[Rfam]
The family of this 147-nucleotide RNA sequence from Papaver nudicaule is "Small nucleolar RNA snoR2/U65". The base pairs follow the family's consensus structure, which was predicted with WAR. Rfam 15.1 lists 908 matches to the family in 230 species. The organism belongs to Papaver, within Eukaryota. For this family Rfam cites "Localization and processing from a polycistronic precursor of novel snoRNAs in maize" (Shaw et al., J Cell Sci, 1998). Rfam classes the family as an H/ACA-box small nucleolar RNA.

RNA sequence: GGUCCGAGCCACGUUGAUGAUAGUCUAAAUGACAAUAACCAUCAAUGCUAUGAUUGGAUCUAUAAACAUUCCAUAUUUUGCAUCUUGAUUGGAAUCUGUAGACUGAUUUACCAUUCAUUUACAGACCCAUUUUGUGAGAUUACAUCU
Numbered sequence: 001g002g003u004c005c006g007a008g009c010c011a012c013g014u015u016g017a018u019g020a021u022a023g024u025c026u027a028a029a030u031g032a033c034a035a036u037a038a039c040c041a042u043c044a045a046u047g048c049u050a051u052g053a054u055u056g057g058a059u060c061u062a063u064a065a066a067c068a069u070u071c072c073a074u075a076u077u078u079u080g081c082a083u084c085u086u087g088a089u090u091g092g093a094a095u096c097u098g099u100a101g102a103c104u105g106a107u108u109u110a111c112c113a114u115u116c117a118u119u120u121a122c123a124g125a126c127c128c129a130u131u132u133u134g135u136g137a138g139a140u141u142a143c144a145u146c147u
Base pairs, nucleotide, nucleotide: 002059003058004057005056006055007054008051012047013046014045015044016043017042019040021038023033024032025031078139079138081136082135091128092127096124097123098122100120101119102118